Rfam assigns this 298-nucleotide sequence from Acer saccharum to the family "Early nodulin 40". By type it is a non-coding RNA gene. Lineage of the source: Eukaryota > Embryophyta > rosids > Sapindaceae > Acer.
RNA sequence: AUGGAAGUGUUUUGGCAAGAAUCAAGCCACGGCUCUUGAGGAAAAAAAGCAUGGGUGGGUUUUGGAUUUGGAGAGUGAGAGAUUUUCUCUUCUCACCUCCAUCUCCAAAAUUCAACAGUUUGUCUGUGCUUAGCCAUUAUCUUUUGCUUUUUUUCAGUAAAUGAGUACUUUAUGAAGAAGAAGAAGAAGAAGAAGAGGAAGAAGAAGAAGAUGGUUUCAAUGUAGCAGAGGUUUCUAGCUAAUGCAUGGCAAACCGGCAAGUCACAAAACGGCAAUGGACUCGAUGCAAACGAGUCUU
Numbered sequence: 001a002u003g004g005a006a007g008u009g010u011u012u013u014g015g016c017a018a019g020a021a022u023c024a025a026g027c028c029a030c031g032g033c034u035c036u037u038g039a040g041g042a043a044a045a046a047a048a049g050c051a052u053g054g055g056u057g058g059g060u061u062u063u064g065g066a067u068u069u070g071g072a073g074a075g076u077g078a079g080a081g082a083u084u085u086u087c088u089c090u091u092c093u094c095a096c097c098u099c100c101a102u103c104u105c106c107a108a109a110a111u112u113c114a115a116c117a118g119u120u121u122g123u124c125u126g127u128g129c130u131u132a133g134c135c136a137u138u139a140u141c142u143u144u145u146g147c148u149u150u151u152u153u154u155c156a157g158u159a160a161a162u163g164a165g166u167a168c169u170u171u172a173u174g175a176a177g178a179a180g181a182a183g184a185a186g187a188a189g190a191a192g193a194a195g196a197g198g199a200a201g202a203a204g205a206a207g208a209a210g211a212u213g214g215u216u217u218c219a220a221u222g223u224a225g226c227a228g229a230g231g232u233u234u235c236u237a238g239c240u241a242a243u244g245c246a247u248g249g250c251a252a253a254c255c256g257g258c259a260a261g262u263c264a265c266a267a268a269a270c271g272g273c274a275a276u277g278g279a280c281u282c283g284a285u286g287c288a289a290a291c292g293a294g295u296c297u298u
Stems, first nucleotide, its partner, number of pairs: 072104003118254006138242001278296005